[Rfam]
RNA sequence: GGGGAUCUACGGAGCCCUAUAACCAUUGGGUCCAGACCAUCGGACCCAUCAGCUGACGGAAGACAGAAA
Numbered sequence: 001g002g003g004g005a006u007c008u009a010c011g012g013a014g015c016c017c018u019a020u021a022a023c024c025a026u027u028g029g030g031u032c033c034a035g036a037c038c039a040u041c042g043g044a045c046c047c048a049u050c051a052g053c054u055g056a057c058g059g060a061a062g063a064c065a066g067a068a069a
Stems, first nucleotide, its partner, number of pairs: 001018004006014001008012001028047006
Shown here is a 69-nucleotide sequence, a member of the family "L2-Alphaproteobacteria ribosomal protein leader". The family's RNA type in Rfam is cis-regulatory leader. On this family, see Eckert and Weinberg, BMC Microbiol 2020: "Discovery of 20 novel ribosomal leader candidates in bacteria and archaea". Rfam's curators put it in the seed alignment.